[Rfam]
RNA sequence: GGACAGAACUCUGGAGAGUUCCGCAAGGACGCCGAAGGGGCAAGACAGCAAAGCUGUUCAAUCUCUCAGGCAAAAGGACAGAGCGCAUAGU
Number, nucleotide and partner (000 for none) at each position: 001g000002g000003a000004c000005a000006g086007a000008a000009c083010u082011c081012u080013g079014g000015a000016g000017a000018g000019u000020u029021c028022c027023g000024c000025a000026a000027g022028g021029a020030c000031g071032c070033c069034g067035a066036a000037g000038g065039g064040g063041c000042a000043a000044g058045a057046c056047a055048g000049c000050a000051a000052a000053g000054c000055u047056g046057u045058u044059c000060a000061a000062u000063c040064u039065c038066u035067c034068a000069g033070g032071c031072a000073a000074a000075a000076g000077g000078a000079c013080a012081g011082a010083g009084c000085g000086c006087a000088u000089a000090g000091u000

Overview:
The family of this 91-nucleotide RNA from Desulfitobacterium hafniense is "Glycine riboswitch aptamer". It scores 66 bits against the family's covariance model. Taxonomically the source falls in Desulfitobacterium hafniense (Bacteria, Bacillota, Eubacteriales, Desulfitobacteriaceae).